[Rfam]
RNA sequence: GUUAUCAUGAAAGGCGGAGGGAAUAGACCCAGUGAAACCUUAGCAACCCUAUUCUAGUAGAAGGUGCUACAUUCUAUCCUUAAAUUCUAACUAAUUUUUGUUUAAAGUUUAAAAGGAGCAGAUAAC
Numbered sequence: 001g002u003u004a005u006c007a008u009g010a011a012a013g014g015c016g017g018a019g020g021g022a023a024u025a026g027a028c029c030c031a032g033u034g035a036a037a038c039c040u041u042a043g044c045a046a047c048c049c050u051a052u053u054c055u056a057g058u059a060g061a062a063g064g065u066g067c068u069a070c071a072u073u074c075u076a077u078c079c080u081u082a083a084a085u086u087c088u089a090a091c092u093a094a095u096u097u098u099u100g101u102u103u104a105a106a107g108u109u110u111a112a113a114a115g116g117a118g119c120a121g122a123u124a125a126c
Base pairs, nucleotide, nucleotide: 001126002125003124004123005122006121011041012040013039014038019030020029021028024076025075026074027073042068043067044066045065047064048063049060050059051058052057072120077117078116079115080114081113
RNA: SAM riboswitch aptamer (S box leader)
Organism: Flavobacterium sp. 316